[Rfam]
RNA: msiK RNA
Organism: Leifsonia poae
RNA sequence: CCACCUACCCAUUCACAACGGAUCGUCCGGCACGUACCUGCCGGUGAAGGAGUAAGAA
Numbered sequence: 001c002c003a004c005c006u007a008c009c010c011a012u013u014c015a016c017a018a019c020g021g022a023u024c025g026u027c028c029g030g031c032a033c034g035u036a037c038c039u040g041c042c043g044g045u046g047a048a049g050g051a052g053u054a055a056g057a058a
Stems, first nucleotide, its partner, number of pairs: 009050002012048004027044006